[Rfam]
Notes
Rfam assigns this 63-nucleotide RNA sequence from Saimiri boliviensis to the family "U7 small nuclear RNA". Rfam's curators write: Animal histone pre-mRNAs are spliced by a different mechanism than nuclear pre-mRNAs and self-splicing introns. A reference for the family is Spycher et al. (1994), "3' end processing of mouse histone pre-mRNA: evidence for additional base-pairing between U7 snRNA and pre-mRNA", Nucleic Acids Res.

Nucleotides: 063
Stems, first nucleotide, its partner, number of pairs: 035059003039055001041053004
Number, partner (000 for none) and nucleotide at each position: 001000c002000a003000g004000u005000a006000g007000u008000a009000u010000a011000g012000c013000u014000c015000u016000u017000u018000u019000a020000g021000a022000u023000u024000u025000u026000g027000u028000c029000u030000a031000g032000c033000a034000a035059g036058u037057u038000c039055u040000c041053u042052g043051g044050u045000c046000u047000c048000c049000c050044a051043c052042c053041a054000a055039g056000a057037a058036a059035c060000c061000c062000c063000c